[Rfam]
About this RNA:
The record is a 57-nucleotide RNA sequence from Pseudomonas fulva, which matches "nhaA-I RNA" in Rfam. Acidobacteria, Alphaproteobacteria, Betaproteobacteria and Gammaproteobacteria, Verrucomicrobia, cand. division NC10.
RNA sequence: GGGUGUUAGCCGCAUGGUGCGGUGAGACAGGUCUGUUGCGUUGGUCGGGCCGCCGCG
Numbered sequence: 001g002g003g004u005g006u007u008a009g010c011c012g013c014a015u016g017g018u019g020c021g022g023u024g025a026g027a028c029a030g031g032u033c034u035g036u037u038g039c040g041u042u043g044g045u046c047g048g049g050c051c052g053c054c055g056c057g
Base pairs, nucleotide, nucleotide: 005028006027007026009023010022011021039057040056041055043054044053045052